[Rfam]
RNA sequence: CUCACACCCAUGUGUGUAGGACUUCAAAGGAUCACCAUUAAAUUUAGCACAGAUCUUUAGAAAAGUUAUCACAUGGGUAUGAGACUUGAUUUUCUAGAGAUCUGUGUCAAAUUUAAUGGUGAUCAUUUGAAGUUCUAUACACAUGGGUGUGGG
Numbered sequence: 001c002u003c004a005c006a007c008c009c010a011u012g013u014g015u016g017u018a019g020g021a022c023u024u025c026a027a028a029g030g031a032u033c034a035c036c037a038u039u040a041a042a043u044u045u046a047g048c049a050c051a052g053a054u055c056u057u058u059a060g061a062a063a064a065g066u067u068a069u070c071a072c073a074u075g076g077g078u079a080u081g082a083g084a085c086u087u088g089a090u091u092u093u094c095u096a097g098a099g100a101u102c103u104g105u106g107u108c109a110a111a112u113u114u115a116a117u118g119g120u121g122a123u124c125a126u127u128u129g130a131a132g133u134u135c136u137a138u139a140c141a142c143a144u145g146g147g148u149g150u151g152g153g
Base pairs, nucleotide, nucleotide: 002152003151004150005149006148007147008146009145010144011143012142013141015139016138017137018136019135020134021133022132023131024130025129026128027127028126030124031123032122034120035119036118037117038116039115040114041113042112043111044110045109047107048106049105050104051103052102053101054100055099056098057097058096059095060094061093062092063091065090066089067088068087069082070081071080073078